[Rfam]
RNA: skipping-rope RNA
RNA sequence: AGGAAAUGAAGUAGAAAAAUAUCGGACGCACACGCACCCGAAAGGGUAUCUGAGAGGUGGGGAAAGUCCGUCCCGCCAUUUCCU
Numbered sequence: 001a002g003g004a005a006a007u008g009a010a011g012u013a014g015a016a017a018a019a020u021a022u023c024g025g026a027c028g029c030a031c032a033c034g035c036a037c038c039c040g041a042a043a044g045g046g047u048a049u050c051u052g053a054g055a056g057g058u059g060g061g062g063a064a065a066g067u068c069c070g071u072c073c074c075g076c077c078a079u080u081u082c083c084u
Base pairs, nucleotide, nucleotide: 001084002083003082004081005080006079007078008077011033012032023070024069025068026067027066035052036047037046038045039044057076058075059074060073061072
Dot-bracket structure: ((((((((..[[..........(((((....]].(((((....))))....)....[[[[[....))))).]]]]]))))))))